[Rfam]
RNA sequence: ACAAUGUUCCGCUGCAAUGAAAGUGUGCAAGAGCAUUCG
Numbered sequence: 001a002c003a004a005u006g007u008u009c010c011g012c013u014g015c016a017a018u019g020a021a022a023g024u025g026u027g028c029a030a031g032a033g034c035a036u037u038c039g
Stems, first nucleotide, its partner, number of pairs: 003037007013029004

The record is a 39-nucleotide RNA sequence from Mesobacillus selenatarsenatis, which matches "Ribosomal protein L19 leader" in Rfam. A search with the family's covariance model found it, with a score of 41 bits. The base pairs follow the family's consensus structure, which was predicted with CMfinder. Rfam's curators write: This family is a putative r-protein leader autoregulatory structure found in B. subtilis and other low-GC Gram-positive bacteria. It is annotated as a cis-regulatory leader.